[Rfam]
RNA sequence: GCGGGUUCAGCUCGACCCCCCGGGGCUGAACCAACCGACGGCCCCCGCCAAUCCCCCUGGCGGGGGUCGUCCUCG
Numbered sequence: 001g002c003g004g005g006u007u008c009a010g011c012u013c014g015a016c017c018c019c020c021c022g023g024g025g026c027u028g029a030a031c032c033a034a035c036c037g038a039c040g041g042c043c044c045c046c047g048c049c050a051a052u053c054c055c056c057c058u059g060g061c062g063g064g065g066g067u068c069g070u071c072c073u074c075g
Base pairs, nucleotide, nucleotide: 003035004032005031006030007029008028009027010026011025012024013023037071038070039069040068041067042066043065044064045063046062047061048060049059
Source information: The record is a 75-nucleotide RNA sequence, which matches "6C RNA" in Rfam. It scores 65 bits against the family's covariance model. Gene Ontology term of the family: sporulation.